[Rfam]
RNA sequence: UGUCCCUGUCGCGACUGGCGCCAGAGGUGGAUCACCACCGGGGAGCGACGAACCACGCAGACCGCAGGUCGCCCGCCUGGGCCGAGGGU
Numbered sequence: 001u002g003u004c005c006c007u008g009u010c011g012c013g014a015c016u017g018g019c020g021c022c023a024g025a026g027g028u029g030g031a032u033c034a035c036c037a038c039c040g041g042g043g044a045g046c047g048a049c050g051a052a053c054c055a056c057g058c059a060g061a062c063c064g065c066a067g068g069u070c071g072c073c074c075g076c077c078u079g080g081g082c083c084g085a086g087g088g089u
Base pairs, nucleotide, nucleotide: 007050008049009048010047011046012045015042016041017077018076019075020074027038028037029036030035067083068082069081070080